This 100-nucleotide RNA sequence from Flavobacterium branchiophilum belongs to the Rfam family "Flavo-1 RNA". The family's RNA type in Rfam is small RNA. The match comes from Rfam's covariance-model search (68 bits).
RNA sequence: UACUAAUCAAAGAGGUGGGUGCGUUAGGGAUAGUAGUGGAAAUCCUUUUUUGUUUUUUUUUUAAAAACAAAAAAGAUUGAAACGAAUAGCCCGACCCUUG
Numbered sequence: 001u002a003c004u005a006a007u008c009a010a011a012g013a014g015g016u017g018g019g020u021g022c023g024u025u026a027g028g029g030a031u032a033g034u035a036g037u038g039g040a041a042a043u044c045c046u047u048u049u050u051u052g053u054u055u056u057u058u059u060u061u062u063a064a065a066a067a068c069a070a071a072a073a074a075g076a077u078u079g080a081a082a083c084g085a086a087u088a089g090c091c092c093g094a095c096c097c098u099u100g
Stems, first nucleotide, its partner, number of pairs: 027092003031088002036083002041078004047073011
Dot-bracket structure: ..........................(((.((...((...((((..(((((((((((.....))))))))))).))))...))...)).)))........